[Rfam]
RNA sequence: CCUGGAACAAUAUCCUGGUGCUGCUUGAGUUCUGCUUCCACACUCCAGCAUCAGUGAUUUUGUUGCAGG
Numbered sequence: 001c002c003u004g005g006a007a008c009a010a011u012a013u014c015c016u017g018g019u020g021c022u023g024c025u026u027g028a029g030u031u032c033u034g035c036u037u038c039c040a041c042a043c044u045c046c047a048g049c050a051u052c053a054g055u056g057a058u059u060u061u062g063u064u065g066c067a068g069g
Stems, first nucleotide, its partner, number of pairs: 006064005012058003015054009
Notes:
mir-338 microRNA precursor family: a 69-nucleotide sequence from Gadus morhua. The family has 36 seed sequences and 1,231 matches in Rfam 15.1. Rfam links the family to the GO terms miRNA-mediated post-transcriptional gene silencing and RISC complex. A reference for the family is Chen et al. (2005), "The developmental miRNA profiles of zebrafish as determined by small RNA cloning", Genes Dev.